[Rfam]
RNA sequence: AUUGCAUAACGGCCUAGUCCCGAGAUUCGGGAGCGGAGGAACCAAUUUUUUGGGGUUAAUUCUGCAUUUGCAGGAAGGAUGAGAUCUUUCGCCAUCCUACCCGUCAGCUAACUUCGUCGGCUAAAGCGAAGGAGGUC
Dot-bracket structure: ..........((((...(((.........)))((((((....((......))(((.....((((......))))..((((.............))))..))).........)))))).))))...............
c-di-AMP riboswitch aptamer (ydaO/yuaA leader): a 137-nucleotide RNA from Metabacillus indicus.
The pairing is the family consensus, mapped onto this sequence.
A search with the family's covariance model found it, with a score of 84 bits.
This family represents a conserved RNA structure found upstream of the ydaO and yuaA genes in Bacillus subtilis and related genes in other bacteria.